RNA sequence: CUUUGAAAAAGGCACGCCUGUUGUAAAGCAGGUUCGCAAAGCCUGAAGCCCAUUUAUAUUUGGGUGGUUCAGCUACCGGA
Numbered sequence: 001c002u003u004u005g006a007a008a009a010a011g012g013c014a015c016g017c018c019u020g021u022u023g024u025a026a027a028g029c030a031g032g033u034u035c036g037c038a039a040a041g042c043c044u045g046a047a048g049c050c051c052a053u054u055u056a057u058a059u060u061u062g063g064g065u066g067g068u069u070c071a072g073c074u075a076c077c078g079g080a
Stems, first nucleotide, its partner, number of pairs: 012037002017032006040074003045070003048065005
This 80-nucleotide RNA from Halonatronomonas betaini belongs to the Rfam family "c-di-GMP-I riboswitch aptamer". Taxonomically the source falls in Halonatronomonas (Bacteria, Bacillota, Clostridia, Halanaerobiales).